Shown here is a 141-nucleotide RNA sequence from Sapajus apella, a member of the family "U4 spliceosomal RNA". Clan: U4 clan. The family's consensus secondary structure is taken from published work. Its family is annotated with spliceosomal tri-snRNP complex assembly and U4 snRNP in the Gene Ontology. It is annotated as a spliceosomal small nuclear RNA. It scores 106 bits against the family's covariance model. About the family: U4 small nuclear RNA (U4 snRNA) is a component of the major U2-dependent spliceosome. The organism belongs to Sapajus, within Eukaryota.
Nucleotides: 141
Stems, first nucleotide, its partner, number of pairs: 020052004026047003034042002085117003088113003092109001094107003130141004
Number, partner (000 for none) and nucleotide at each position: 001000a002000g003000c004000u005000u006000u007000g008000u009000g010000c011000a012000g013000u014000g015000g016000c017000a018000g019000u020052a021051u022050c023049a024000u025000a026047g027046c028045c029000a030000a031000u032000g033000a034042g035041g036000u037000u038000u039000a040000u041035c042034u043000g044000a045028g046027g047026c048000c049023u050022g051021a052020u053000u054000a055000u056000u057000g058000c059000u060000a061000c062000a063000u064000g065000a066000a067000a068000a069000c070000u071000u072000u073000u074000c075000c076000c077000a078000g079000u080000a081000c082000c083000c084000c085117g086116c087115c088113a089112u090111g091000a092109c093000g094107a095106c096105u097000u098000g099000a100000a101000a102000u103000a104000u105096a106095g107094u108000g109092g110000g111090c112089a113088u114000u115087g116086g117085c118000a119000a120000u121000u122000u123000u124000u125000g126000a127000u128000u129000g130141u131140c132139u133138u134000u135000a136000c137000a138133g139132a140131g141130a